[Rfam]
RNA sequence: CGCGCUCAUGGUCGGUUUAAAAACGGCAGCAUGGGCGGGAAACCUGGUGCUGUGGGACAAGCUUGAGACACUGGGCGGGGCGGCGAAGCUAGCACCCCGAGCUGAAUGGCUGGCGGGC
Numbered sequence: 001c002g003c004g005c006u007c008a009u010g011g012u013c014g015g016u017u018u019a020a021a022a023a024c025g026g027c028a029g030c031a032u033g034g035g036c037g038g039g040a041a042a043c044c045u046g047g048u049g050c051u052g053u054g055g056g057a058c059a060a061g062c063u064u065g066a067g068a069c070a071c072u073g074g075g076c077g078g079g080g081c082g083g084c085g086a087a088g089c090u091a092g093c094a095c096c097c098c099g100a101g102c103u104g105a106a107u108g109g110c111u112g113g114c115g116g117g118c
Stems, first nucleotide, its partner, number of pairs: 001039001003037008026053004044074006060103004076099005088114006

The family of this 118-nucleotide RNA sequence from Pollutimonas nitritireducens is "Betaproteobacteria-1 RNA". NCBI's taxonomy places the organism under Bacteria, Pseudomonadati, Betaproteobacteria, Burkholderiales, Pollutimonas. By type it is a small RNA. The family's consensus secondary structure is taken from published work.